[Rfam]
RNA sequence: AGCCCUCUGUAUCCGUGCUGAGAUUUCGUCAAAGAUCAACCCGUUGGCACUGGAUGAUGAUACUUCCCAAAUAAGUGAAGCG
Numbered sequence: 001a002g003c004c005c006u007c008u009g010u011a012u013c014c015g016u017g018c019u020g021a022g023a024u025u026u027c028g029u030c031a032a033a034g035a036u037c038a039a040c041c042c043g044u045u046g047g048c049a050c051u052g053g054a055u056g057a058u059g060a061u062a063c064u065u066c067c068c069a070a071a072u073a074a075g076u077g078a079a080g081c082g
Base pairs, nucleotide, nucleotide: 002081003080006077008075010073011072012071017066020065021064022063024062026060027059028058029057030056
This 82-nucleotide sequence from Trichobilharzia regenti belongs to the Rfam family "mir-3492 microRNA precursor family". Its family is annotated with miRNA-mediated post-transcriptional gene silencing and RISC complex in the Gene Ontology. It scores 45 bits against the family's covariance model.